Description:
The family of this 86-nucleotide RNA sequence is "GA-cis RNA".
RNA sequence: GAGCGGAGGGCGCAUAUGAACAGCGUUCAUAUUUAGGAUGCGCCCGACAACAUGCCGACGAGCGAAGCGAGGGGGCAAUACCCGUG
Numbered sequence: 001g002a003g004c005g006g007a008g009g010g011c012g013c014a015u016a017u018g019a020a021c022a023g024c025g026u027u028c029a030u031a032u033u034u035a036g037g038a039u040g041c042g043c044c045c046g047a048c049a050a051c052a053u054g055c056c057g058a059c060g061a062g063c064g065a066a067g068c069g070a071g072g073g074g075g076c077a078a079u080a081c082c083c084g085u086g
Stems, first nucleotide, its partner, number of pairs: 008045006015031006054076003059071001062068002